[Rfam]
RNA: Small nucleolar RNA SNORD53/SNORD92
RNA sequence: AUGCAGUGAUGAUCUCCAUCUUGGUUUCGCUUUUUGCUGAGUUCCAGUGAAGACUCAUUUCUCUUGGCUGUCUGAGCAU
Numbered sequence: 001a002u003g004c005a006g007u008g009a010u011g012a013u014c015u016c017c018a019u020c021u022u023g024g025u026u027u028c029g030c031u032u033u034u035u036g037c038u039g040a041g042u043u044c045c046a047g048u049g050a051a052g053a054c055u056c057a058u059u060u061c062u063c064u065u066g067g068c069u070g071u072c073u074g075a076g077c078a079u
Base pairs, nucleotide, nucleotide: 001079002078003077004076